RNA: Small nucleolar RNA snoR99
Nucleotides: 063
Base pairs, nucleotide, nucleotide: 001061002060003059004058005057006056018047019046020045021044022043023042025040
Number, partner (000 for none) and nucleotide at each position: 001061u002060c003059c004058a005057u006056c007000u008000g009000u010000u011000u012000c013000a014000c015000u016000u017000u018047g019046u020045c021044a022043g023042c024000a025040g026000u027000c028000u029000u030000a031000a032000u033000u034000a035000a036000u037000u038000u039000c040025u041000c042023g043022c044021u045020g046019a047018u048000c049000a050000u051000u052000u053000u054000a055000u056006g057005a058004u059003g060002g061001g062000a063000u